[Rfam]
RNA sequence: AUCCUUUUAGCCAGACGGGAAAGUUUACGGACUUUUCACAGUGCAAGAAAGGGAAAAGGGAUCUGUUUCAGUUCCGGUCAUAGCGCCGGAGAAAUUUAAUUUGCUGAUAAUGCGGUUAGUACCUGGCGAAAGCCGGCGAAGGGCGUAACGAUCA
Dot-bracket structure: ..((((((.((......((((((((....)))))))).....))..))))))....................((((((......))))))..............((((..((((.(.....((...........)).....).))))...))))
Numbered sequence: 001a002u003c004c005u006u007u008u009a010g011c012c013a014g015a016c017g018g019g020a021a022a023g024u025u026u027a028c029g030g031a032c033u034u035u036u037c038a039c040a041g042u043g044c045a046a047g048a049a050a051g052g053g054a055a056a057a058g059g060g061a062u063c064u065g066u067u068u069c070a071g072u073u074c075c076g077g078u079c080a081u082a083g084c085g086c087c088g089g090a091g092a093a094a095u096u097u098a099a100u101u102u103g104c105u106g107a108u109a110a111u112g113c114g115g116u117u118a119g120u121a122c123c124u125g126g127c128g129a130a131a132g133c134c135g136g137c138g139a140a141g142g143g144c145g146u147a148a149c150g151a152u153c154a
Stems, first nucleotide, its partner, number of pairs: 003052006010044002018037008073090006105154004111147004116142001122136002
The family of this 154-nucleotide RNA sequence from Firmicutes bacterium CAG:56 is "RT-14 RNA". A search with the family's covariance model found it, with a score of 49 bits. The family's RNA type in Rfam is small RNA. NCBI's taxonomy places the organism under Bacteria, Bacillati, Bacillota.